[Rfam]
RNA sequence: AGCAAACACAAUAUUACAUGUAACGUGCAUGUUAGUUAUAUAACAGUUAUAUUGUUGAGUAGGAAAUUACAACUAACAUGCACGUUACAUGUAAUAUUGUGUUUG
Numbered sequence: 001a002g003c004a005a006a007c008a009c010a011a012u013a014u015u016a017c018a019u020g021u022a023a024c025g026u027g028c029a030u031g032u033u034a035g036u037u038a039u040a041u042a043a044c045a046g047u048u049a050u051a052u053u054g055u056u057g058a059g060u061a062g063g064a065a066a067u068u069a070c071a072a073c074u075a076a077c078a079u080g081c082a083c084g085u086u087a088c089a090u091g092u093a094a095u096a097u098u099g100u101g102u103u104u105g
Base pairs, nucleotide, nucleotide: 006102007101008100009099010098011097013095014094015093016092017091018090019089020088021087022086023085024084025083026082027081028080030078031077032076
The family of this 105-nucleotide RNA sequence from Harpegnathos saltator is "MIR397 microRNA precursor family". The family's consensus secondary structure was predicted with WAR. A search with the family's covariance model found it, with a score of 58 bits. The literature on the family includes a 2009 paper in Plant Cell by Wu et al., "Rice MicroRNA effector complexes and targets".